[Rfam]
RNA sequence: AGAUUGAUGAUGCUUCCAUAUAUACAUUUUUUUUUGGAAAGGUGAACCAAAUGAGCGAAAACUCAGUACCAUCAUCCUCAUCGAACUGAGGUCC
Numbered sequence: 001a002g003a004u005u006g007a008u009g010a011u012g013c014u015u016c017c018a019u020a021u022a023u024a025c026a027u028u029u030u031u032u033u034u035u036g037g038a039a040a041g042g043u044g045a046a047c048c049a050a051a052u053g054a055g056c057g058a059a060a061a062c063u064c065a066g067u068a069c070c071a072u073c074a075u076c077c078u079c080a081u082c083g084a085a086c087u088g089a090g091g092u093c094c
Stems, first nucleotide, its partner, number of pairs: 002093004025057001027055003034049001036047001